[Rfam]
RNA: Ribosomal protein L19 leader
RNA sequence: ACGAUGUUCCGCUGUAGUAUUAAGCUUUCAAGAGCAUCUG
Numbered sequence: 001a002c003g004a005u006g007u008u009c010c011g012c013u014g015u016a017g018u019a020u021u022a023a024g025c026u027u028u029c030a031a032g033a034g035c036a037u038c039u040g
Stems, first nucleotide, its partner, number of pairs: 003038007013030002016026003